The family of this 95-nucleotide RNA from Gossypium klotzschianum is "MIR8675 microRNA precursor family".
RNA sequence: UAUGGCAUUAUGAGAUUGUGCAACAUCAUCACUUGAAAAUUAAAAAAUAUAUAUGAAUUUUCAGGUGAUGAUGUGAUACAAUUUCAAAGUUUCAC
Numbered sequence: 001u002a003u004g005g006c007a008u009u010a011u012g013a014g015a016u017u018g019u020g021c022a023a024c025a026u027c028a029u030c031a032c033u034u035g036a037a038a039a040u041u042a043a044a045a046a047a048u049a050u051a052u053a054u055g056a057a058u059u060u061u062c063a064g065g066u067g068a069u070g071a072u073g074u075g076a077u078a079c080a081a082u083u084u085c086a087a088a089g090u091u092u093c094a095c
Stems, first nucleotide, its partner, number of pairs: 003094003007090003012085009023074019